c-di-AMP riboswitch aptamer (ydaO/yuaA leader): a 157-nucleotide sequence from Geodermatophilus marinus.
[Rfam]
RNA sequence: GUCCGGGCGCCGCCGAACGCAGGACGGGCGACCGUCCGAGACCGGGGACCCACCGCAGUACUGGGGUGAAUCCUGCGAGCCGAACUGCCGGCCGCAGGUAGGGCGUCUUCCCGCCCGAAUCCGUCAGCUAACUCGGUAGGCGGCCACUGGAAGACAG
Numbered sequence: 001g002u003c004c005g006g007g008c009g010c011c012g013c014c015g016a017a018c019g020c021a022g023g024a025c026g027g028g029c030g031a032c033c034g035u036c037c038g039a040g041a042c043c044g045g046g047g048a049c050c051c052a053c054c055g056c057a058g059u060a061c062u063g064g065g066g067u068g069a070a071u072c073c074u075g076c077g078a079g080c081c082g083a084a085c086u087g088c089c090g091g092c093c094g095c096a097g098g099u100a101g102g103g104c105g106u107c108u109u110c111c112c113g114c115c116c117g118a119a120u121c122c123g124u125c126a127g128c129u130a131a132c133u134c135g136g137u138a139g140g141c142g143g144c145c146a147c148u149g150g151a152a153g154a155c156a157g
Stems, first nucleotide, its partner, number of pairs: 011142004018040001020038001041137006051063002064122003072098006101116004